[Rfam]
RNA sequence: AGGCACUGUGGGAGCCAUAACCCAGGGGCGGUAGCGUG
Numbered sequence: 001a002g003g004c005a006c007u008g009u010g011g012g013a014g015c016c017a018u019a020a021c022c023c024a025g026g027g028g029c030g031g032u033a034g035c036g037u038g
Stems, first nucleotide, its partner, number of pairs: 009024004
JUMPstart RNA: a 38-nucleotide sequence from Aliidiomarina minuta. It is annotated as a cis-regulatory element. The organism belongs to Aliidiomarina, within Bacteria.